[Rfam]
RNA sequence: AGUAUCCUGGGAUGUGCGAUACCCCCUUAUUUUUGAACCUACAUUUACGUUUAUGGGAUUCCUAUAUUGUUGAUCGGAUGUCAAGCCGUCAUUACGCAGCGGAAGGCAGAAGAGAAAUUGCGGUCGCCCACCUAGCAGUCGCUAGGCGUCAAAAAAAGGGAAACGGCAUUCUGGGACUACG
Numbered sequence: 001a002g003u004a005u006c007c008u009g010g011g012a013u014g015u016g017c018g019a020u021a022c023c024c025c026c027u028u029a030u031u032u033u034u035g036a037a038c039c040u041a042c043a044u045u046u047a048c049g050u051u052u053a054u055g056g057g058a059u060u061c062c063u064a065u066a067u068u069g070u071u072g073a074u075c076g077g078a079u080g081u082c083a084a085g086c087c088g089u090c091a092u093u094a095c096g097c098a099g100c101g102g103a104a105g106g107c108a109g110a111a112g113a114g115a116a117a118u119u120g121c122g123g124u125c126g127c128c129c130a131c132c133u134a135g136c137a138g139u140c141g142c143u144a145g146g147c148g149u150c151a152a153a154a155a156a157a158g159g160g161a162a163a164c165g166g167c168a169u170u171c172u173g174g175g176a177c178u179a180c181g
Base pairs, nucleotide, nucleotide: 005176006175007174008173009172010171011170012169013168014167015166017165018164030155031154032153034151035150036149038146039145055129056128057127061123062122066119069118070117071116074113075112081106082105086102087101088100089099

Record summary:
This 181-nucleotide RNA from Firmicutes bacterium CAG:646 belongs to the Rfam family "6S / SsrS RNA". E. coli 6S RNA was the first non coding RNA to be sequenced, but its function was unknown until recently. Rfam classes the family as a non-coding RNA gene. A search with the family's covariance model found it, with a score of 63 bits.